A member of the RNA family "S10-Clostridia ribosomal protein leader" from bacterium 1XD42-8, 82 nucleotides long.
A search with the family's covariance model found it, with a score of 41 bits.
The base pairs follow the family's consensus structure, which is taken from published work.
[Rfam]
RNA sequence: GAUAUGCGAUGAUGCGGGAGGUGGCCGUCCAGAGAGACGGGGAAUUUCCGCGGAGUAUGUCCGAUUUAAAACCGGGCGGCUU
Numbered sequence: 001g002a003u004a005u006g007c008g009a010u011g012a013u014g015c016g017g018g019a020g021g022u023g024g025c026c027g028u029c030c031a032g033a034g035a036g037a038c039g040g041g042g043a044a045u046u047u048c049c050g051c052g053g054a055g056u057a058u059g060u061c062c063g064a065u066u067u068a069a070a071a072c073c074g075g076g077c078g079g080c081u082u
Stems, first nucleotide, its partner, number of pairs: 014051003018048004025040005059080003065076003